[Rfam]
RNA sequence: GCCCUCGCCAAUGCUGCGUUUCUUUGCUCACACACAGACACCACGCCUCGCUGCCUGGCUGUCCCAACCAUGCAAAUGAGAAAUUCGGAGUAAUCUUCAACCUCACCCGCCAUUCCAUUGCGUCUUGGCCGCUGCCCGUGAGGGCCUGGCGUGAACACGCCUGCUCCUGGCAUCAGAAAACUCAGGGCCAGUCGGGCGCGCUGCUUUUGGGCGGCGUCUCCGACCUGCACCCCUAUGGGAGUCAGUGCGAAGAUUGUGUGCUCGCCGACGGGCCUGCGACACUUCAGUGCAAUACGCGGCGUACCGUAUCCCCCGGUAUCAUUCGAUUCCGAUUACUCUGGCGAGGGC
Number, nucleotide and partner (000 for none) at each position: 001g348002c347003c346004c345005u000006c000007g000008c341009c340010a339011a000012u000013g300014c299015u298016g297017c296018g295019u294020u000021u000022c000023u076024u075025u074026g073027c000028u000029c000030a000031c000032a000033c000034a000035c000036a000037g063038a062039c061040a060041c000042c058043a000044c000045g000046c000047c000048u000049c000050g000051c000052u000053g000054c000055c000056u000057g000058g042059c000060u040061g039062u038063c037064c000065c000066a000067a000068c000069c000070a000071u000072g000073c026074a025075a024076a023077u000078g000079a000080g000081a000082a000083a000084u000085u000086c331087g330088g329089a328090g327091u000092a000093a000094u000095c252096u251097u250098c249099a000100a000101c000102c000103u000104c000105a000106c000107c000108c000109g000110c000111c000112a000113u000114u000115c000116c000117a000118u000119u000120g000121c000122g000123u000124c000125u000126u000127g000128g000129c000130c000131g000132c000133u000134g145135c144136c143137c142138g000139u000140g000141a000142g137143g136144g135145c134146c000147u000148g161149g160150c159151g158152u157153g000154a000155a000156c000157a152158c151159g150160c149161c148162u000163g000164c000165u247166c000167c245168u244169g243170g242171c241172a000173u000174c000175a000176g000177a000178a000179a000180a000181c000182u000183c000184a000185g234186g233187g232188c000189c000190a000191g000192u000193c000194g000195g000196g000197c000198g000199c000200g000201c000202u000203g000204c000205u000206u000207u000208u000209g000210g000211g000212c000213g000214g000215c000216g000217u000218c000219u000220c000221c000222g000223a000224c000225c000226u000227g000228c000229a000230c000231c000232c187233c186234u185235a000236u000237g000238g000239g000240a000241g171242u170243c169244a168245g167246u000247g165248c000249g098250a097251a096252g095253a000254u000255u000256g000257u000258g000259u000260g000261c000262u000263c000264g000265c000266c000267g000268a000269c000270g000271g000272g000273c000274c000275u000276g000277c000278g000279a000280c000281a000282c000283u000284u000285c000286a000287g000288u000289g000290c000291a000292a000293u000294a019295c018296g017297c016298g015299g014300c013301g319302u318303a317304c316305c315306g314307u000308a000309u000310c000311c000312c000313c000314c306315g305316g304317u303318a302319u301320c000321a000322u000323u000324c000325g000326a000327u090328u089329c088330c087331g086332a000333u000334u000335a000336c000337u000338c000339u010340g009341g008342c000343g000344a000345g004346g003347g002348c001
This 348-nucleotide RNA sequence from Botryosphaeria dothidea belongs to the Rfam family "Nuclear RNase P". From the family's description: Ribonuclease P (RNase P) is a ubiquitous endoribonuclease, found in archaea, bacteria and eukarya as well as chloroplasts and mitochondria. Its best characterised activity is the generation of mature 5'-ends of tRNAs by cleaving the 5'-leader elements of precursor-tRNAs. The base pairs follow the family's consensus structure, which is taken from published work. It scores 64 bits against the family's covariance model.